[Rfam]
Nucleotides: 067
Stems, first nucleotide, its partner, number of pairs: 001067005
Number, partner (000 for none) and nucleotide at each position: 001067g002066u003065g004064c005063a006000a007000a008000u009000g010000a011000u012000g013000u014000a015000a016000a017000c018000u019000u020000c021000a022000a023000u024000u025000c026000c027000a028000c029000u030000g031000a032000g033000u034000a035000a036000c037000a038000g039000u040000g041000a042000u043000g044000u045000u046000u047000c048000c049000a050000a051000a052000g053000g054000a055000a056000c057000c058000a059000c060000u061000g062000a063005u064004g065003c066002a067001c